[Rfam]
The family of this 435-nucleotide part of an RNA from uncultured bacterium HF0770_45N15 is "Bacterial large subunit ribosomal RNA". Rfam links the family to the GO terms ribosome and structural constituent of ribosome.
RNA sequence: CUCCCCGAAACAUAUUGAGGUAUGUCCCCGUGUUGGGGCCGCCGGAGGUAGAGCACCGGAUGGGCUAGGGGUCCCACCAGACUGCCAAACCCAACCGAACUCCGAAUGCCGGCGAGCCUGCAGCGGGAGCCAGGCGGCGGGAGCUAACUUCCGCGCGUCGAGAGGGAAACAACCCAGACCAUCGGCCAAGGCCCCCAAGCCGCAGCUCAGUGGGAAAGGAGGUGGGGGCGCACGGACAGCCAGGAGGUUGGCUUAGAGGCAGCCAUCCUUUAAAGAAAGCGUAACAGCUCACUGGCCGAGUGUUCCCGCGCCGAAAAUACAACGGGGCUCAAGCUGCGCGCCGAAGCCGUGGACCCCUUCGGGGGUGGUAGGGGAGCUUCCCCCGUGCAGGGAAGCCAUCUCGUGAGGGAUGGUGGAGCGCGGGGGAGUGAGGAU
Numbered sequence: 001c002u003c004c005c006c007g008a009a010a011c012a013u014a015u016u017g018a019g020g021u022a023u024g025u026c027c028c029c030g031u032g033u034u035g036g037g038g039c040c041g042c043c044g045g046a047g048g049u050a051g052a053g054c055a056c057c058g059g060a061u062g063g064g065c066u067a068g069g070g071g072u073c074c075c076a077c078c079a080g081a082c083u084g085c086c087a088a089a090c091c092c093a094a095c096c097g098a099a100c101u102c103c104g105a106a107u108g109c110c111g112g113c114g115a116g117c118c119u120g121c122a123g124c125g126g127g128a129g130c131c132a133g134g135c136g137g138c139g140g141g142a143g144c145u146a147a148c149u150u151c152c153g154c155g156c157g158u159c160g161a162g163a164g165g166g167a168a169a170c171a172a173c174c175c176a177g178a179c180c181a182u183c184g185g186c187c188a189a190g191g192c193c194c195c196c197a198a199g200c201c202g203c204a205g206c207u208c209a210g211u212g213g214g215a216a217a218g219g220a221g222g223u224g225g226g227g228g229c230g231c232a233c234g235g236a237c238a239g240c241c242a243g244g245a246g247g248u249u250g251g252c253u254u255a256g257a258g259g260c261a262g263c264c265a266u267c268c269u270u271u272a273a274a275g276a277a278a279g280c281g282u283a284a285c286a287g288c289u290c291a292c293u294g295g296c297c298g299a300g301u302g303u304u305c306c307c308g309c310g311c312c313g314a315a316a317a318u319a320c321a322a323c324g325g326g327g328c329u330c331a332a333g334c335u336g337c338g339c340g341c342c343g344a345a346g347c348c349g350u351g352g353a354c355c356c357c358u359u360c361g362g363g364g365g366u367g368g369u370a371g372g373g374g375a376g377c378u379u380c381c382c383c384c385g386u387g388c389a390g391g392g393a394a395g396c397c398a399u400c401u402c403g404u405g406a407g408g409g410a411u412g413g414u415g416g417a418g419c420g421c422g423g424g425g426g427a428g429u430g431a432g433g434a435u
Stems, first nucleotide, its partner, number of pairs: 001376006011024005026129001027127005033122001036121001037118003040114006051103001052101002057097003061093004068086002070083004133159004137154006164175003179352004184348003190342003199339001201338006218312002222309010239296005245269003250264003270274001275290001279288002353366005377430001379427010395414008